[Rfam]
RNA sequence: CCUGCUGUUCUGCCAGCAGUAGCCUACUUGAUCGUGCGUCACUGGCAACGGUGGGGUGCGGAGCUUCAAGGACAACGACCGGGGCGUCAUGCCUAGCUGGAGCCGCGAGGCGAAAGCGACACCUGCAAGCAUCGACGCGGGAGCCGGA
Numbered sequence: 001c002c003u004g005c006u007g008u009u010c011u012g013c014c015a016g017c018a019g020u021a022g023c024c025u026a027c028u029u030g031a032u033c034g035u036g037c038g039u040c041a042c043u044g045g046c047a048a049c050g051g052u053g054g055g056g057u058g059c060g061g062a063g064c065u066u067c068a069a070g071g072a073c074a075a076c077g078a079c080c081g082g083g084g085c086g087u088c089a090u091g092c093c094u095a096g097c098u099g100g101a102g103c104c105g106c107g108a109g110g111c112g113a114a115a116g117c118g119a120c121a122c123c124u125g126c127a128a129g130c131a132u133c134g135a136c137g138c139g140g141g142a143g144c145c146g147g148a
Stems, first nucleotide, its partner, number of pairs: 002019006028069004033060005039054006082094005096117003103110002122141005

Shown here is a 148-nucleotide RNA, a member of the family "Group II catalytic intron D1-D4-7". Group II introns are found in rRNA, tRNA and mRNA of organelles in fungi, plants and protists, and also in mRNA in bacteria. Rfam 15.1 lists 1,296 matches to the family in 705 species. It is one of the family's seed sequences. Pairs were carried over by alignment from the consensus structure. For this family Rfam cites "The ins and outs of group II introns" (Bonen and Vogel, Trends Genet, 2001).